[Rfam]
The record is a 170-nucleotide RNA from Roseburia sp. CAG:303, which matches "Clostridiales-1 RNA" in Rfam. It scores 107 bits against the family's covariance model. The family's consensus secondary structure is taken from published work. NCBI's taxonomy places the organism under Bacteria, Bacillati, Clostridia, Lachnospirales, Roseburia.
RNA sequence: UAAUGUCAAAGGUACAAAGGUCAGAAAGCCGUUCAUGCUUGCAUGAUAAGGCUUUUGAACUUGGGACCUGCCAAAUAUGAGGAAGAAGUGAUUUGAGCAGCAAAUCAGCGGAUUCCAAAUAUUUGCAGAAUUGCGAAAGCAGAUUUCUGCGGAGCAAUUCGUUGACAUUG
Numbered sequence: 001u002a003a004u005g006u007c008a009a010a011g012g013u014a015c016a017a018a019g020g021u022c023a024g025a026a027a028g029c030c031g032u033u034c035a036u037g038c039u040u041g042c043a044u045g046a047u048a049a050g051g052c053u054u055u056u057g058a059a060c061u062u063g064g065g066a067c068c069u070g071c072c073a074a075a076u077a078u079g080a081g082g083a084a085g086a087a088g089u090g091a092u093u094u095g096a097g098c099a100g101c102a103a104a105u106c107a108g109c110g111g112a113u114u115c116c117a118a119a120u121a122u123u124u125g126c127a128g129a130a131u132u133g134c135g136a137a138a139g140c141a142g143a144u145u146u147c148u149g150c151g152g153a154g155c156a157a158u159u160c161g162u163u164g165a166c167a168u169u170g
Stems, first nucleotide, its partner, number of pairs: 001170007011068003017062003021058003025055006032048001033046005072125007081116004088109002090106005128160007139150004